[Rfam]
RNA sequence: UCGGGAGAGGUUCUAGACACACCCUCUAUAAAAAACUAAGGAAGG
Numbered sequence: 001u002c003g004g005g006a007g008a009g010g011u012u013c014u015a016g017a018c019a020c021a022c023c024c025u026c027u028a029u030a031a032a033a034a035a036c037u038a039a040g041g042a043a044g045g
Base pairs, nucleotide, nucleotide: 006027007026008025009024010023014038015037
The family of this 45-nucleotide RNA from Cohnella luojiensis is "PreQ1 (pre queuosine) riboswitch aptamer". The source organism's lineage runs through Bacteria, Bacillati, Bacillota, Caryophanales and Cohnella. Rfam 15.1 lists 873 matches to the family in 692 species. For this family Rfam cites "Structural Insights into riboswitch control of the biosynthesis of queuosine, a modified nucleotide found in the anticodon of tRNA" (Kang et al., Mol Cell, 2009). Rfam links the family to the GO term queuosine biosynthetic process.